[Rfam]
Shown here is a 117-nucleotide RNA from Niveispirillum lacus, a member of the family "Guanidine-I riboswitch aptamer". Lineage of the source: Bacteria > Pseudomonadati > Pseudomonadota > Alphaproteobacteria > Niveispirillum. The literature on the family includes a 2004 paper in Proc Natl Acad Sci U S A by Barrick et al., "New RNA motifs suggest an expanded scope for riboswitches in bacterial genetic control". This family represents a conserved RNA structure found upstream of the ykkC and yxkD genes in Bacillus subtilis and related genes in other bacteria.

RNA sequence: AUUAAAGGUGGCUAGGGUUCCAGCCGUGUGAUCACGGUGUUCGGUCCGAGAGCUGCCGCCAAUCACCGCCGCGUACAGGCGUAGAUUGGUACACGGCGGGACAAAAGCCCGGGAGAU
Numbered sequence: 001a002u003u004a005a006a007g008g009u010g011g012c013u014a015g016g017g018u019u020c021c022a023g024c025c026g027u028g029u030g031a032u033c034a035c036g037g038u039g040u041u042c043g044g045u046c047c048g049a050g051a052g053c054u055g056c057c058g059c060c061a062a063u064c065a066c067c068g069c070c071g072c073g074u075a076c077a078g079g080c081g082u083a084g085a086u087u088g089g090u091a092c093a094c095g096g097c098g099g100g101a102c103a104a105a106a107g108c109c110c111g112g113g114a115g116a117u
Stems, first nucleotide, its partner, number of pairs: 007057006015047002020044002022041001023038006058090007092112001094115001098110003